[Rfam]
RNA sequence: GGAAUCCGAUUUAUCCAAGGUCUAGCCAGCCAGAUAAUAGCGAGUCUUGGGAUGUUGUUGGUAACAGCAACUGACAAGCGUAGACAGCAAGAAAGCAGGGUUGCAAUGCUAUUGAGCCUCGAAAAGUUAACUUCAGUAGGCCGACGUCUUAACUGGUGCGGAAGGCAACAGCACACAAGUCAUUAUGGCGAGAAUUGUGUGGCGCUGCGGGGUCAAAGGGCC
Numbered sequence: 001g002g003a004a005u006c007c008g009a010u011u012u013a014u015c016c017a018a019g020g021u022c023u024a025g026c027c028a029g030c031c032a033g034a035u036a037a038u039a040g041c042g043a044g045u046c047u048u049g050g051g052a053u054g055u056u057g058u059u060g061g062u063a064a065c066a067g068c069a070a071c072u073g074a075c076a077a078g079c080g081u082a083g084a085c086a087g088c089a090a091g092a093a094a095g096c097a098g099g100g101u102u103g104c105a106a107u108g109c110u111a112u113u114g115a116g117c118c119u120c121g122a123a124a125a126g127u128u129a130a131c132u133u134c135a136g137u138a139g140g141c142c143g144a145c146g147u148c149u150u151a152a153c154u155g156g157u158g159c160g161g162a163a164g165g166c167a168a169c170a171g172c173a174c175a176c177a178a179g180u181c182a183u184u185a186u187g188g189c190g191a192g193a194a195u196u197g198u199g200u201g202g203c204g205c206u207g208c209g210g211g212g213u214c215a216a217a218g219g220g221c222c
Stems, first nucleotide, its partner, number of pairs: 012036004019031003023191001025189002038090001040088002044085004048080002050075001054071007113216001114214001116213006134207004139203001140166003145160003172201007180193002
Shown here is a 222-nucleotide sequence, a member of the family "Group II catalytic intron D1-D4-6".
Gene Ontology term of the family: Group II intron splicing.
The literature on the family includes a 2003 paper in Crit Rev Biochem Mol Biol by Lehmann and Schmidt, "Group II introns: structure and catalytic versatility of large natural ribozymes".
Group II introns are found in rRNA, tRNA and mRNA of organelles in fungi, plants and protists, and also in mRNA in bacteria.